[Rfam]
The family of this 136-nucleotide sequence from Mustela putorius is "Small nucleolar RNA SNORA43". Rfam 15.1 lists 492 matches to the family in 142 species. From the family's description: ACA43 is a member of the H/ACA class of snoRNA that guide the sites of modification of uridines to pseudouridines. The source organism's lineage runs through Eukaryota, Vertebrata, Teleostomi, Boreoeutheria and Mustela putorius.
RNA sequence: CAGGUGCUGGACCUGCCGGCACCCCGGGUCCAGCUGCUCUGCUGCACCUGGGCCGUCGGGGCAAAGAGCAAGCGGCUAUUUCUACGCUCAGUGCUCAGAACCGUGAGCGCUAAGAAUGGUUUGUAGCCGGACAUGC
Numbered sequence: 001c002a003g004g005u006g007c008u009g010g011a012c013c014u015g016c017c018g019g020c021a022c023c024c025c026g027g028g029u030c031c032a033g034c035u036g037c038u039c040u041g042c043u044g045c046a047c048c049u050g051g052g053c054c055g056u057c058g059g060g061g062c063a064a065a066g067a068g069c070a071a072g073c074g075g076c077u078a079u080u081u082c083u084a085c086g087c088u089c090a091g092u093g094c095u096c097a098g099a100a101c102c103g104u105g106a107g108c109g110c111u112a113a114g115a116a117u118g119g120u121u122u123g124u125a126g127c128c129g130g131a132c133a134u135g136c
Base pairs, nucleotide, nucleotide: 004062005061007059008058009057010056024051025050026049027048074128075127076126082119083118084117087114088113092109093108094107095106096105097104